[Rfam]
RNA sequence: UAAAAAUGAGGCCUUCUCUUCCCACUUCUUCCCAGAGUCAGGAAAAGCUGGGUUGAGAGGGUAGAAAAAAAAUGAU
Numbered sequence: 001u002a003a004a005a006a007u008g009a010g011g012c013c014u015u016c017u018c019u020u021c022c023c024a025c026u027u028c029u030u031c032c033c034a035g036a037g038u039c040a041g042g043a044a045a046a047g048c049u050g051g052g053u054u055g056a057g058a059g060g061g062u063a064g065a066a067a068a069a070a071a072a073u074g075a076u
Stems, first nucleotide, its partner, number of pairs: 014059005021052004029044004

Shown here is a 76-nucleotide RNA from Pongo pygmaeus, a member of the family "mir-320 microRNA precursor family". Gene Ontology terms of the family: negative regulation of gene expression, cellular response to glucose stimulus and long-term synaptic potentiation. The base pairs follow the family's consensus structure, which was predicted with RNAalifold. On this family, see Berezikov et al., Genome Res 2006: "Many novel mammalian microRNA candidates identified by extensive cloning and RAKE analysis".